Notes: Shown here is an 81-nucleotide RNA sequence from Pantoea vagans, a member of the family "antisense RNA of dnaA mRNA". It scores 81 bits against the family's covariance model. The literature on the family includes a 2013 paper in PLoS One by Dadzie et al., "Identification and characterization of a cis-encoded antisense RNA associated with the replication process of Salmonella enterica serovar Typhi".
RNA sequence: UUUGGCAUUGGGCUUGCGCGCAAUAAUGCCAUUACCAACCGCAUGCAAAAGGUGGGUUUUACCUAAACCAGUGCCGCCAUA
Numbered sequence: 001u002u003u004g005g006c007a008u009u010g011g012g013c014u015u016g017c018g019c020g021c022a023a024u025a026a027u028g029c030c031a032u033u034a035c036c037a038a039c040c041g042c043a044u045g046c047a048a049a050a051g052g053u054g055g056g057u058u059u060u061a062c063c064u065a066a067a068c069c070a071g072u073g074c075c076g077c078c079a080u081a
Stems, first nucleotide, its partner, number of pairs: 005042002009038001011036002016032001018030001020029002051078004056074002061072002